[Rfam]
The family of this 109-nucleotide sequence from Bacillus infantis is "TPP riboswitch aptamer (THI element)".
Gene Ontology term of the family: thiamine pyrophosphate binding.
It scores 59 bits against the family's covariance model.
RNA sequence: AGAGAAUUGUGGGGGAACCGGGCACGGUUGAGACUUUAUUUUUACAAUAAAGGACCCUUUGAACCUGAUCUGGAGAGAUGCCAGCGUAGGAAACAUAUUCUUAAUUGAU
Numbered sequence: 001a002g003a004g005a006a007u008u009g010u011g012g013g014g015g016a017a018c019c020g021g022g023c024a025c026g027g028u029u030g031a032g033a034c035u036u037u038a039u040u041u042u043u044a045c046a047a048u049a050a051a052g053g054a055c056c057c058u059u060u061g062a063a064c065c066u067g068a069u070c071u072g073g074a075g076a077g078a079u080g081c082c083a084g085c086g087u088a089g090g091a092a093a094c095a096u097a098u099u100c101u102u103a104a105u106u107g108a109u
Base pairs, nucleotide, nucleotide: 008095009094010093011058012057013056014055017028018027019026020025035051036050037049038048039047064090065089066088067087070084071083072082073081